The family of this 45-nucleotide RNA is "Tick-borne Flavivirus short stem-loop SL6". The family's RNA type in Rfam is cis-regulatory element.

RNA sequence: CCCCCGCACCAUGACAAGGCCGAACAUGGUGCACCAAAGGGGAGG
Numbered sequence: 001c002c003c004c005c006g007c008a009c010c011a012u013g014a015c016a017a018g019g020c021c022g023a024a025c026a027u028g029g030u031g032c033a034c035c036a037a038a039g040g041g042g043a044g045g
Base pairs, nucleotide, nucleotide: 001042002041003040004039006032007031008030009029010028011027012026013025
For this family Rfam cites "Molecular archaeology of Flaviviridae untranslated regions: duplicated RNA structures in the replication enhancer of flaviviruses and pestiviruses emerged via convergent evolution" (Gritsun et al., PLoS One, 2014). From the family's description: In different studies, a short stem-loop, named SL6 has been observed in at least Tick-borne encephalitis virus, Langat virus and Omsk hemorrhagic fever. SL6 shows a high heterogeneity among different tick-borne flaviviruses, but is structurally conserved supported by multiple covariation.